[Rfam]
RNA sequence: UGGUGGGGCAGAGGCCGUGAACCACGCCCCCACAGAUGGGCGCUUAUUUCGGGGGACGUGGGGAGCCAGUAGCGCGACCGGCUACUGGACCU
Numbered sequence: 001u002g003g004u005g006g007g008g009c010a011g012a013g014g015c016c017g018u019g020a021a022c023c024a025c026g027c028c029c030c031c032a033c034a035g036a037u038g039g040g041c042g043c044u045u046a047u048u049u050c051g052g053g054g055g056a057c058g059u060g061g062g063g064a065g066c067c068a069g070u071a072g073c074g075c076g077a078c079c080g081g082c083u084a085c086u087g088g089a090c091c092u
Base pairs, nucleotide, nucleotide: 002091003090004089007086008085010083011082013067014066015065022061023060024059025058026057028055029054038079039078040075041074042073043072044071
Rfam assigns this 92-nucleotide RNA sequence to the family "c-di-GMP-II-GAG riboswitch aptamer".
Rfam links the family to the GO terms cyclic-di-GMP binding and regulation of gene expression.
On this family, see Weinberg et al., Proc Natl Acad Sci U S A 2017: "Bioinformatic analysis of riboswitch structures uncovers variant classes with altered ligand specificity".
Its Rfam clan is "c-di-GMP_II riboswitch clan".